[Rfam]
Shown here is a 58-nucleotide RNA from Streptomyces populi, a member of the family "msiK RNA".
The family has 120 seed sequences and 1,374 matches in Rfam 15.1.
The organism belongs to Streptomyces, within Bacteria.

RNA sequence: GGAUCACCACCUUUACAACGGAUCGUCCGGCACGUUCCUGCCGGUGAAGGGGGCCCAU
Numbered sequence: 001g002g003a004u005c006a007c008c009a010c011c012u013u014u015a016c017a018a019c020g021g022a023u024c025g026u027c028c029g030g031c032a033c034g035u036u037c038c039u040g041c042c043g044g045u046g047a048a049g050g051g052g053g054c055c056c057a058u
Stems, first nucleotide, its partner, number of pairs: 010050006027044006